[Rfam]
Small nucleolar RNA MBII-202: an 80-nucleotide RNA from Poecilia reticulata. The organism belongs to Poecilia, within Eukaryota. The family has 30 seed sequences and 745 matches in Rfam 15.1. A search with the family's covariance model found it, with a score of 68 bits. Pairs were carried over by alignment from the consensus structure, which was predicted with PFOLD.
RNA sequence: UGAUGACAAAUCUCUGGAAUCUCUGUACUAUUUUGAUGAAACAUUUGAACCCUAUUCCUGAUGACUGCUCUGUUUUUAUU
Number, nucleotide and partner (000 for none) at each position: 001u000002g080003a079004u078005g077006a076007c000008a000009a000010a000011u000012c000013u000014c000015u000016g000017g000018a000019a000020u000021c000022u000023c000024u000025g000026u000027a000028c000029u000030a000031u000032u000033u000034u000035g000036a000037u000038g000039a000040a000041a000042c000043a000044u000045u000046u000047g000048a000049a000050c000051c000052c000053u000054a000055u000056u000057c000058c000059u000060g000061a000062u000063g000064a000065c000066u000067g000068c000069u000070c000071u000072g000073u000074u000075u000076u006077u005078a004079u003080u002